[Rfam]
Rfam assigns this 57-nucleotide RNA sequence from Echeneis naucrates to the family "U7 small nuclear RNA".
Taxonomically the source falls in Echeneis (Eukaryota, Gnathostomata, Neopterygii, Echeneidae).
RNA sequence: GAGGAUUUUUGCUCUUUAGAAAUUUGUCUAGAAGGUUUCUCUUAAAGAGAAGCCCCC
Numbered sequence: 001g002a003g004g005a006u007u008u009u010u011g012c013u014c015u016u017u018a019g020a021a022a023u024u025u026g027u028c029u030a031g032a033a034g035g036u037u038u039c040u041c042u043u044a045a046a047g048a049g050a051a052g053c054c055c056c057c
Stems, first nucleotide, its partner, number of pairs: 034054008